Rfam assigns this 151-nucleotide RNA from Trifolium medium to the family "Small nucleolar RNA snoR138".
RNA sequence: UUUGCCUCCGAAUAACUGAAUGGUGAUUCAUUACAUUUUAGUUCAGACAGAGGCAUAUAUAUAACACCUGAAUUGGUUUGGUUUGAUGGUGCUGAAUGCAUCAUUUUCAGUUCCGUUUCCAUACCUGUAGUUUGUUUCAAUUCGGACAUUC
Numbered sequence: 001u002u003u004g005c006c007u008c009c010g011a012a013u014a015a016c017u018g019a020a021u022g023g024u025g026a027u028u029c030a031u032u033a034c035a036u037u038u039u040a041g042u043u044c045a046g047a048c049a050g051a052g053g054c055a056u057a058u059a060u061a062u063a064a065c066a067c068c069u070g071a072a073u074u075g076g077u078u079u080g081g082u083u084u085g086a087u088g089g090u091g092c093u094g095a096a097u098g099c100a101u102c103a104u105u106u107u108c109a110g111u112u113c114c115g116u117u118u119c120c121a122u123a124c125c126u127g128u129a130g131u132u133u134g135u136u137u138c139a140a141u142u143c144g145g146a147c148a149u150u151c
Stems, first nucleotide, its partner, number of pairs: 003055006014043007023034003069144006075114002079110001081108001086104006121137001123135002
Taxonomically the source falls in Trifolium (Eukaryota, Streptophyta, Embryophyta, Spermatophyta). The base pairs follow the family's consensus structure, which was predicted with mfold. By type it is an H/ACA-box small nucleolar RNA.